[Rfam]
Background:
A member of the RNA family "MIR2593 microRNA precursor family" from Medicago truncatula, 113 nucleotides long. The base pairs follow the family's consensus structure, which was predicted with RNAalifold. Taxonomically the source falls in Medicago (Eukaryota, Embryophyta, eudicotyledons, Fabales). The family has 7 seed sequences and 1,262 matches in Rfam 15.1.
RNA sequence: AUAUAAACAAAAUUGACUUUUUAGGUUCAUUCAUUUAAUGAUGUAUGUAGUCUAUAUUAUGAACCACAUACAUCAUUAAAUGAAUGAACCUAAAAAGUAAAUUUUGCUUAUAU
Dot-bracket structure: .(((((.((((((((.((((((((.((((((((((((((((((....(.((...........)).)....)))))))))))))))))).))))))))))).))))).))))).